[Rfam]
RNA sequence: GUGAGGUACAGGACUUGGCUCGCUUUGUGAACAGUUCCAGGAAUGUUCCAUGUUCACAGUGGCUAAGUUCCGCUCCUCUG
Numbered sequence: 001g002u003g004a005g006g007u008a009c010a011g012g013a014c015u016u017g018g019c020u021c022g023c024u025u026u027g028u029g030a031a032c033a034g035u036u037c038c039a040g041g042a043a044u045g046u047u048c049c050a051u052g053u054u055c056a057c058a059g060u061g062g063c064u065a066a067g068u069u070c071c072g073c074u075c076c077u078c079u080g
Stems, first nucleotide, its partner, number of pairs: 011070010027057007
Rfam assigns this 80-nucleotide RNA sequence from Electrophorus electricus to the family "mir-27 microRNA precursor family".
A reference for the family is Chen et al. (2005), "The developmental miRNA profiles of zebrafish as determined by small RNA cloning", Genes Dev.